[Rfam]
RNA: Sense overlapping transcript RNA 0042 (sot)
RNA sequence: AGGUACUCCCGAGUCUCGCCUGUGAUGGCGGUGAUAGGGAUAACGGCUGGUUGGCACAGCCAGCGGUUCACCUGUUCGACCGUAGUGAGGGCUGUUUCGCCCCACGAGAACAGGUUGCUAACCGCGAACCGUAAUAUCCCAACGCGGUCGGAAAUCCUCGCCCUUCAACGCGGGGA
Numbered sequence: 001a002g003g004u005a006c007u008c009c010c011g012a013g014u015c016u017c018g019c020c021u022g023u024g025a026u027g028g029c030g031g032u033g034a035u036a037g038g039g040a041u042a043a044c045g046g047c048u049g050g051u052u053g054g055c056a057c058a059g060c061c062a063g064c065g066g067u068u069c070a071c072c073u074g075u076u077c078g079a080c081c082g083u084a085g086u087g088a089g090g091g092c093u094g095u096u097u098c099g100c101c102c103c104a105c106g107a108g109a110a111c112a113g114g115u116u117g118c119u120a121a122c123c124g125c126g127a128a129c130c131g132u133a134a135u136a137u138c139c140c141a142a143c144g145c146g147g148u149c150g151g152a153a154a155u156c157c158u159c160g161c162c163c164u165u166c167a168a169c170g171c172g173g174g175g176a
Base pairs, nucleotide, nucleotide: 003044004043007040008039009038010037013035014034015033016031017030018029019028020027045061046060047059048058049057064124065123066122067121068120069117071114072113073112074111075110076109077108089102090101091100092099137153139151140150142148143147155176156175157174158173159172160171161170